[Rfam]
RNA sequence: CUCGGGGGGAGGGUCCCUCAGUCUGGAUUGCGAGAGGGCGCAGGCUAGGCCGAGGGACCCCACCGGUGCACG
Numbered sequence: 001c002u003c004g005g006g007g008g009g010a011g012g013g014u015c016c017c018u019c020a021g022u023c024u025g026g027a028u029u030g031c032g033a034g035a036g037g038g039c040g041c042a043g044g045c046u047a048g049g050c051c052g053a054g055g056g057a058c059c060c061c062a063c064c065g066g067u068g069c070a071c072g
Stems, first nucleotide, its partner, number of pairs: 004069001006067001008063001011060009021050003025046002028043005
This 72-nucleotide sequence from Cnephaeus nilssonii belongs to the Rfam family "mir-9193 microRNA precursor family". Taxonomically the source falls in Cnephaeus (Eukaryota, Opisthokonta, Mammalia, Laurasiatheria). Rfam links the family to the GO terms RISC complex and miRNA-mediated post-transcriptional gene silencing.